[Rfam]
Description
The family of this 72-nucleotide sequence from Homo sapiens is "mir-3689 microRNA precursor family". Gene Ontology terms of the family: miRNA-mediated post-transcriptional gene silencing and RISC complex. NCBI's taxonomy places the organism under Eukaryota, Bilateria, Craniata, Tetrapoda, Homo.

RNA sequence: GGGAGGUGUGAUCCUGUUCUUCCUGAGCGGUGUGAUCCUGUGCUCCCUGGGGGGUCUGAUCCUGUGCUUCCU
Numbered sequence: 001g002g003g004a005g006g007u008g009u010g011a012u013c014c015u016g017u018u019c020u021u022c023c024u025g026a027g028c029g030g031u032g033u034g035a036u037c038c039u040g041u042g043c044u045c046c047c048u049g050g051g052g053g054g055u056c057u058g059a060u061c062c063u064g065u066g067c068u069u070c071c072u
Stems, first nucleotide, its partner, number of pairs: 001071005015058002020053006027046001029044001031042004
The family's consensus secondary structure was predicted with RNAalifold.